Rfam assigns this 203-nucleotide RNA sequence from Nocardia wallacei to the family "Actinobacteria sRNA Ms_IGR-5". The pairing is the family consensus, mapped onto this sequence. The match comes from Rfam's covariance-model search (127 bits).

[Rfam]
RNA sequence: ACACGGGAAAGGAGGUGGUUCGAAGAAUGAGUAUUCGAUGGACACGUGAGGUGGCUGUCAGCUAGCGCCACCGCUGCAGACGGAUUGUCGUUCGCGCGAGCGCGGAGCUAAUCCCAGGCAGCCACCCGACCCCCGAGCCCCUGGUUUGUCCGCCCGGGAUCGCGAGAGGACCCCUCCGCGAUAGGGUUCGGGGGUCGUUCCAU
Numbered sequence: 001a002c003a004c005g006g007g008a009a010a011g012g013a014g015g016u017g018g019u020u021c022g023a024a025g026a027a028u029g030a031g032u033a034u035u036c037g038a039u040g041g042a043c044a045c046g047u048g049a050g051g052u053g054g055c056u057g058u059c060a061g062c063u064a065g066c067g068c069c070a071c072c073g074c075u076g077c078a079g080a081c082g083g084a085u086u087g088u089c090g091u092u093c094g095c096g097c098g099a100g101c102g103c104g105g106a107g108c109u110a111a112u113c114c115c116a117g118g119c120a121g122c123c124a125c126c127c128g129a130c131c132c133c134c135g136a137g138c139c140c141c142u143g144g145u146u147u148g149u150c151c152g153c154c155c156g157g158g159a160u161c162g163c164g165a166g167a168g169g170a171c172c173c174c175u176c177c178g179c180g181a182u183a184g185g186g187u188u189c190g191g192g193g194g195u196c197g198u199u200c201c202a203u
Stems, first nucleotide, its partner, number of pairs: 014059006060109003063105001065103004072096003127197013140158005